This 110-nucleotide RNA sequence from Actinobacteria bacterium OV320 belongs to the Rfam family "SAM (S-adenosyl methionine) riboswitch aptamer". Rfam's curators write: SAM-IV is a mRNA element that regulates gene expression via direct sensing of S-adenosylmethionine (SAM or AdoMet). The family's consensus secondary structure is taken from published work. The literature on the family includes a 2008 paper in RNA by Weinberg et al., "The aptamer core of SAM-IV riboswitches mimics the ligand-binding site of SAM-I riboswitches".

RNA sequence: GGCAUUGAGUGUCAGCAUCAAGCCCUGGCUAGCUGACCGGCAACCCUCCUCCGCGGUGGGGUGCUCCAGGUGAAAGCCCGGCAGGGUCACCGACCCUGCAAGCGCGUGGC
Numbered sequence: 001g002g003c004a005u006u007g008a009g010u011g012u013c014a015g016c017a018u019c020a021a022g023c024c025c026u027g028g029c030u031a032g033c034u035g036a037c038c039g040g041c042a043a044c045c046c047u048c049c050u051c052c053g054c055g056g057u058g059g060g061g062u063g064c065u066c067c068a069g070g071u072g073a074a075a076g077c078c079c080g081g082c083a084g085g086g087u088c089a090c091c092g093a094c095c096c097u098g099c100a101a102g103c104g105c106g107u108g109g110c
Base pairs, nucleotide, nucleotide: 001078002077003076009038011037012036013035014034015033016032021030022029039065040064041063044061045060046059048056049055081099082098083097084096085095086094087093088092